[Rfam]
RNA sequence: CCGCCCGUCGCUACUACCGAUUGGCAGGCUUUUUGAGGCGUUCGGAGAGCCUAUAAGGAGCUGGCAACAGCACCUUACUGGUUCAAAGUUCUACGAAAAUGGUCUGCUAGAGGAAGUAAAAGUCGUAACAAGGUUUCUGUAGGUGAACCUGCAGAAGGAUCAUUA
Numbered sequence: 001c002c003g004c005c006c007g008u009c010g011c012u013a014c015u016a017c018c019g020a021u022u023g024g025c026a027g028g029c030u031u032u033u034u035g036a037g038g039c040g041u042u043c044g045g046a047g048a049g050c051c052u053a054u055a056a057g058g059a060g061c062u063g064g065c066a067a068c069a070g071c072a073c074c075u076u077a078c079u080g081g082u083u084c085a086a087a088g089u090u091c092u093a094c095g096a097a098a099a100u101g102g103u104c105u106g107c108u109a110g111a112g113g114a115a116g117u118a119a120a121a122g123u124c125g126u127a128a129c130a131a132g133g134u135u136u137c138u139g140u141a142g143g144u145g146a147a148c149c150u151g152c153a154g155a156a157g158g159a160u161c162a163u164u165a
Stems, first nucleotide, its partner, number of pairs: 001132001003129001006125002009122001012118004017113002021109001023108008032099003037094001040091001043088001047084005054077004060071003134157010